[Rfam]
RNA sequence: AUGAAGCUCUGUUGGCAAAAAUCCAUCCAUGGUUCUUAAAGAAACAUGGGAAGAAGUGUGAGAGGGUCCUUAACUCCUCACACUCUCCCACUUCCAACAGUUUGCUUGUGCUUAGCUAUUGGCUUCUCUAAUCACCAAGGGAUAUGCUGAAACAUUCUCAUUCUCUCUGAGUAGCAGAAGCAGAUAAGCAUUCUCUAAAGGAGGAGAGGCUUUGGCUACAGCUUGGCAAACCGGCAAGUCACAAAAAGGCAAUGGACUCCAUUAGGGGUUCU
Numbered sequence: 001a002u003g004a005a006g007c008u009c010u011g012u013u014g015g016c017a018a019a020a021a022u023c024c025a026u027c028c029a030u031g032g033u034u035c036u037u038a039a040a041g042a043a044a045c046a047u048g049g050g051a052a053g054a055a056g057u058g059u060g061a062g063a064g065g066g067u068c069c070u071u072a073a074c075u076c077c078u079c080a081c082a083c084u085c086u087c088c089c090a091c092u093u094c095c096a097a098c099a100g101u102u103u104g105c106u107u108g109u110g111c112u113u114a115g116c117u118a119u120u121g122g123c124u125u126c127u128c129u130a131a132u133c134a135c136c137a138a139g140g141g142a143u144a145u146g147c148u149g150a151a152a153c154a155u156u157c158u159c160a161u162u163c164u165c166u167c168u169g170a171g172u173a174g175c176a177g178a179a180g181c182a183g184a185u186a187a188g189c190a191u192u193c194u195c196u197a198a199a200g201g202a203g204g205a206g207a208g209g210c211u212u213u214g215g216c217u218a219c220a221g222c223u224u225g226g227c228a229a230a231c232c233g234g235c236a237a238g239u240c241a242c243a244a245a246a247a248g249g250c251a252a253u254g255g256a257c258u259c260c261a262u263u264a265g266g267g268g269u270u271c272u
Base pairs, nucleotide, nucleotide: 058088100231101230102229103228104227105226119220255270256269257268258267259266
RNA: Early nodulin 40